The record is a 378-nucleotide sequence from Neolewinella aurantiaca, which matches "transfer-messenger RNA" in Rfam. From the family's description: Bacterial tmRNA, also known as 10Sa RNA or SsrA, is named for its dual tRNA and mRNA-like properties. Its role is to liberate the mRNA from a stalled ribosome. The family's consensus secondary structure is taken from published work. The family's RNA type in Rfam is non-coding RNA gene. A reference for the family is Williams and Bartel (1996), "Phylogenetic analysis of tmRNA secondary structure", RNA.

[Rfam]
RNA sequence: GGGGGCGUACCGGAAUCGACAGGGAAGUAAGUUUUGUAGUAAGCACGCCGGAGCAUGAUUGGUUACUCCGUAAAAAAUAACGAUUACAAUUCUAGUUGGCACUCCCAGCUACGCUAUGGCAGCCUAAUCUCUGAUUAGAACCAUAGUACUAUAGGCCGCAUGGUUGAGGUUCCAUACACAUCAUGCCGCCUUCACCCCCUUUGGGACUAGUCUCCGACCCUGAUCCGAGUCGAUAGGCGAAAUUCAGGAAAUAAGGUCCGGACAUGAGAGGGCGACCAAUCUCUCCCCGGACUCGAAAAUUUUGACUGGCCGAUAAGCGUGUAGAAAGCUGCUUUACGCUUUCGCUGGACGCGAGUUCGACUCUCGCCGCCUCCACAU
Number, nucleotide and partner (000 for none) at each position: 001g374002g373003g372004g371005g370006c369007g368008u000009a000010c000011c000012g000013g000014a000015a000016u000017c000018g000019a000020c347021a346022g345023g000024g343025a342026a341027g339028u338029a000030a000031g337032u336033u000034u000035u000036g332037u331038a330039g329040u328041a000042a000043g000044c321045a320046c319047g318048c317049c070050g069051g068052a067053g066054c000055a000056u000057g085058a084059u083060u082061g081062g000063u000064u000065a000066c053067u052068c051069c050070g049071u000072a000073a000074a000075a000076a000077a000078u000079a000080a000081c061082g060083a059084u058085u057086a000087c000088a000089a000090u000091u000092c000093u000094a000095g000096u000097u000098g000099g000100c000101a000102c000103u000104c000105c000106c000107a000108g000109c000110u000111a000112c000113g000114c000115u139116a000117u137118g136119g000120c133121a132122g131123c000124c000125u000126a000127a000128u000129c000130u000131c122132u121133g120134a000135u000136u118137a117138g000139a115140a000141c000142c000143a000144u000145a000146g000147u000148a000149c000150u000151a000152u000153a191154g190155g189156c188157c000158g186159c185160a184161u183162g182163g000164u000165u178166g177167a000168g000169g000170u000171u206172c205173c204174a000175u000176a201177c166178a165179c000180a000181u000182c162183a161184u160185g159186c158187c000188g156189c155190c154191u153192u000193c000194a000195c000196c000197c000198c000199c000200u000201u176202u000203g000204g173205g172206a171207c000208u000209a000210g000211u240212c239213u000214c237215c236216g000217a234218c000219c232220c000221u000222g000223a252224u251225c000226c000227g000228a000229g000230u000231c000232g219233a000234u217235a000236g215237g214238c000239g212240a211241a000242a000243u000244u000245c000246a000247g000248g000249a000250a000251a224252u223253a000254a000255g293256g292257u291258c290259c289260g288261g287262a000263c000264a000265u000266g000267a000268g000269a000270g283271g282272g281273c000274g311275a000276c309277c308278a000279a000280u305281c272282u271283c270284u000285c000286c000287c261288c260289g259290g258291a257292c256293u255294c000295g000296a000297a000298a000299a000300u000301u000302u000303u000304g000305a280306c000307u000308g277309g276310c000311c274312g000313a000314u000315a000316a000317g048318c047319g046320u045321g044322u000323a000324g000325a000326a000327a000328g040329c039330u038331g037332c036333u000334u000335u000336a032337c031338g028339c027340u000341u026342u025343c024344g000345c022346u021347g020348g000349a000350c000351g367352c366353g365354a364355g363356u000357u000358c000359g000360a000361c000362u000363c355364u354365c353366g352367c351368c007369g006370c005371c004372u003373c002374c001375a000376c000377a000378u000

The source organism's lineage runs through Bacteria, Pseudomonadati, Saprospirales, Lewinellaceae and Neolewinella.
Its Rfam clan is "tRNA clan".